Description: Shown here is a 110-nucleotide RNA from Lentibacillus amyloliquefaciens, a member of the family "PyrR binding site". It is annotated as a cis-regulatory element. It scores 60 bits against the family's covariance model. For this family Rfam cites "Molecular recognition of pyr mRNA by the Bacillus subtilis attenuation regulatory protein PyrR" (Bonner et al., Nucleic Acids Res, 2001).

[Rfam]
RNA sequence: CAGACCUUUAAUUAAAUCCAGAGAGAUUUGAAAGGUCGCUUUAGGAAACGUGUUCUGAGUGAUAAGACACGUAAACCUCUUUGCGGCUUUUCGCAAAGAGGUUUUUUUGU
Numbered sequence: 001c002a003g004a005c006c007u008u009u010a011a012u013u014a015a016a017u018c019c020a021g022a023g024a025g026a027u028u029u030g031a032a033a034g035g036u037c038g039c040u041u042u043a044g045g046a047a048a049c050g051u052g053u054u055c056u057g058a059g060u061g062a063u064a065a066g067a068c069a070c071g072u073a074a075a076c077c078u079c080u081u082u083g084c085g086g087c088u089u090u091u092c093g094c095a096a097a098g099a100g101g102u103u104u105u106u107u108u109g110u
Stems, first nucleotide, its partner, number of pairs: 003037007013030006049071006056064002073104013